The record is a 142-nucleotide sequence from Planosporangium mesophilum, which matches "c-di-AMP riboswitch aptamer (ydaO/yuaA leader)" in Rfam. This family represents a conserved RNA structure found upstream of the ydaO and yuaA genes in Bacillus subtilis and related genes in other bacteria. The ydaO/yuaA element is thought to act as a genetic 'off' switch for the ydaO and yuaA genes in its native state.

[Rfam]
RNA sequence: CACGCGACACCGCCUAAUUAUCUUUGUCGAUGAGCCGGGGAUCCAAACGCAACAUUGGGGUGAAUCCGCUGCUCGCAGCGGUAGGGCGACACUUCCCGCCCGAAUCCGUCAGCUAACCCGGUAGGCGGUCAGGGAAGAAGGA
Numbered sequence: 001c002a003c004g005c006g007a008c009a010c011c012g013c014c015u016a017a018u019u020a021u022c023u024u025u026g027u028c029g030a031u032g033a034g035c036c037g038g039g040g041a042u043c044c045a046a047a048c049g050c051a052a053c054a055u056u057g058g059g060g061u062g063a064a065u066c067c068g069c070u071g072c073u074c075g076c077a078g079c080g081g082u083a084g085g086g087c088g089a090c091a092c093u094u095c096c097c098g099c100c101c102g103a104a105u106c107c108g109u110c111a112g113c114u115a116a117c118c119c120g121g122u123a124g125g126c127g128g129u130c131a132g133g134g135a136a137g138a139a140g141g142a
Stems, first nucleotide, its partner, number of pairs: 011127004018033005034122006044057002058107003066081004084101004